[Rfam]
RNA sequence: GAAUUCUGGUCUUGAAUGGUGGAUAGAUGCUGUCUAUUUAUCUCUAGCACCAUUUGAAAUCAGUGCUUC
Numbered sequence: 001g002a003a004u005u006c007u008g009g010u011c012u013u014g015a016a017u018g019g020u021g022g023a024u025a026g027a028u029g030c031u032g033u034c035u036a037u038u039u040a041u042c043u044c045u046a047g048c049a050c051c052a053u054u055u056g057a058a059a060u061c062a063g064u065g066c067u068u069c
Stems, first nucleotide, its partner, number of pairs: 001069003006063005012057003016053006024046004
Shown here is a 69-nucleotide RNA from Biomphalaria glabrata, a member of the family "mir-29 microRNA precursor family". It scores 52 bits against the family's covariance model. The base pairs follow the family's consensus structure, which was predicted with PFOLD. About the family: This family represents the microRNA (miRNA) precursors mir-29. Rfam 15.1 lists 3,328 matches to the family in 787 species. A reference for the family is Ambros (2001), "microRNAs: tiny regulators with great potential", Cell.